[Rfam]
Record summary: Lysine riboswitch aptamer: a 169-nucleotide RNA sequence from Paraclostridium benzoelyticum. Lineage of the source: Bacteria > Bacillati > Bacillota > Peptostreptococcales > Paraclostridium.

RNA sequence: AACUGAGAUAGAGGCGCGAAACUUAUUAGUAGUAUUAUGGAGGUAGCUCGAUGAAGUAAUAUGAAAGGAAAUUUCGCCGAAGUAAAUAGUUAAUAGCUUUAACACUAUUUACUGGGCUUAUAUAAAAUAUAUAUAAGACUGUCACAUUUUGUGGAGUGCUAUUUUCAAU
Numbered sequence: 001a002a003c004u005g006a007g008a009u010a011g012a013g014g015c016g017c018g019a020a021a022c023u024u025a026u027u028a029g030u031a032g033u034a035u036u037a038u039g040g041a042g043g044u045a046g047c048u049c050g051a052u053g054a055a056g057u058a059a060u061a062u063g064a065a066a067g068g069a070a071a072u073u074u075c076g077c078c079g080a081a082g083u084a085a086a087u088a089g090u091u092a093a094u095a096g097c098u099u100u101a102a103c104a105c106u107a108u109u110u111a112c113u114g115g116g117c118u119u120a121u122a123u124a125a126a127a128u129a130u131a132u133a134u135a136a137g138a139c140u141g142u143c144a145c146a147u148u149u150u151g152u153g154g155a156g157u158g159c160u161a162u163u164u165u166c167a168a169u
Stems, first nucleotide, its partner, number of pairs: 006164006016077006023070002032062007081113010114140002117137008142154005